[Rfam]
RNA sequence: CGUCCGAACUCUGGGGAGUAGCCGGCCUUCGGCAACGAAGGCAUCUGCAUCAACACAUUUGGCCCGCAGGCCAUGGUGCAGAUGAUCGCAAGAUUUGGCGAGACCAUUGAUCAACCGACGACUUGCAGGGGCCGGAGUCGUUGCUUGGUCUUUGGUUGAAUCGUCCGGC
Dot-bracket structure: .........................(((..........))).((((((((((.......(((((....)))))))))))))))......................................................................................

Manganese Mn2+ riboswitch aptamer (yybP-ykoY): a 169-nucleotide sequence from Oxalicibacterium solurbis. Taxonomically the source falls in Oxalicibacterium (Bacteria, Pseudomonadati, Betaproteobacteria, Burkholderiales).